Rfam assigns this 164-nucleotide RNA sequence from Alkalibacter saccharofermentans to the family "M-box riboswitch aptamer (ykoK leader)". Rfam describes the family as follows. M-box riboswitch, also know as ykoK leader is described as a metaloregulatory RNA that sense divalent metals and function as a genetic control element of genes related to divalent metal transport in bacteria. It was first reported upstream of the B.subtilis ykoK gene and genes with related functions in other bacteria. A search with the family's covariance model found it, with a score of 144 bits. Taxonomically the source falls in Alkalibacter saccharofermentans (Bacteria, Bacillati, Clostridia, Eubacteriales). The pairing is the family consensus, mapped onto this sequence. Rfam 15.1 lists 1,095 matches to the family in 932 species.
RNA sequence: GCUGAUCUUUGUUAGGUGAGGCUACUGCAUGGAAAUACGCCCCUACCCGGAAACAUCGAGAGAUGCCAAUGGGUCAACAGGCUUUAUCGGGUUAAGGUAUAGCUUAACGGGGCUGGGUAAUCCUAAGCCAUGCAGUGCUAAAACUCAACGAGUAAAAGACAGUC
Numbered sequence: 001g002c003u004g005a006u007c008u009u010u011g012u013u014a015g016g017u018g019a020g021g022c023u024a025c026u027g028c029a030u031g032g033a034a035a036u037a038c039g040c041c042c043c044u045a046c047c048c049g050g051a052a053a054c055a056u057c058g059a060g061a062g063a064u065g066c067c068a069a070u071g072g073g074u075c076a077a078c079a080g081g082c083u084u085u086a087u088c089g090g091g092u093u094a095a096g097g098u099a100u101a102g103c104u105u106a107a108c109g110g111g112g113c114u115g116g117g118u119a120a121u122c123c124u125a126a127g128c129c130a131u132g133c134a135g136u137g138c139u140a141a142a143a144c145u146c147a148a149c150g151a152g153u154a155a156a157a158g159a160c161a162g163u164c
Base pairs, nucleotide, nucleotide: 006159007158008157009156010155011149012148013095015145016144017143020139021138022137025135026134027133028132029131030130031129032128039113040112041111042110043109045074046073047072048071049070054065055064056063057062080104081103082102083101086098087097088096115123116122117121